[Rfam]
RNA: Guanidine-II riboswitch aptamer (mini-ykkC)
Organism: Microvirga subterranea
RNA sequence: GUACGGGGACGACCUCGUGCUUCCCGGCGAUCGGUGGGGACGGCCCUG
Numbered sequence: 001g002u003a004c005g006g007g008g009a010c011g012a013c014c015u016c017g018u019g020c021u022u023c024c025c026g027g028c029g030a031u032c033g034g035u036g037g038g039g040a041c042g043g044c045c046c047u048g
Stems, first nucleotide, its partner, number of pairs: 001020008035048005
Dot-bracket structure: ((((((((....))))))))..............(((((....)))))